The family of this 79-nucleotide RNA sequence from Flavobacterium pygoscelis is "Flavo-1 RNA". Rfam classes the family as a small RNA.
[Rfam]
RNA sequence: GUUUUGCGUAAGGGAUAGCAGCGAUAUCCUUUUAUGGAGCUUUGCGUAAUAAAAGAUUUAGCGUAAAGCCCGACCCCAA
Dot-bracket structure: ...........(((.(....((...(((...((((.(.(.....).).))))..)))...))....).)))........